[Rfam]
RNA sequence: CUGCUUCGGUGAACAUUCAACGCUGUCGGUGAGUUUUGGUAUGGAUCCCUUAAAAACCAUCGACCGUUGACUGUGCCCCGCGGCUCG
Numbered sequence: 001c002u003g004c005u006u007c008g009g010u011g012a013a014c015a016u017u018c019a020a021c022g023c024u025g026u027c028g029g030u031g032a033g034u035u036u037u038g039g040u041a042u043g044g045a046u047c048c049c050u051u052a053a054a055a056a057c058c059a060u061c062g063a064c065c066g067u068u069g070a071c072u073g074u075g076c077c078c079c080g081c082g083g084c085u086c087g
Base pairs, nucleotide, nucleotide: 001087003085004083005082007080008079014073015072017070018069019068020067021066022065025064026063027062028061029060030059031058033057034056035055036054
RNA: mir-181 microRNA precursor family